[Rfam]
RNA: Transposase-1 RNA
RNA sequence: CGUUCAGAGAUUGCCUCUGUCGUUAUCCACUCCAGUGGAUACGGGAAUGCAGUUGUUAA
Numbered sequence: 001c002g003u004u005c006a007g008a009g010a011u012u013g014c015c016u017c018u019g020u021c022g023u024u025a026u027c028c029a030c031u032c033c034a035g036u037g038g039a040u041a042c043g044g045g046a047a048u049g050c051a052g053u054u055g056u057u058a059a
Stems, first nucleotide, its partner, number of pairs: 009054006020044004027038003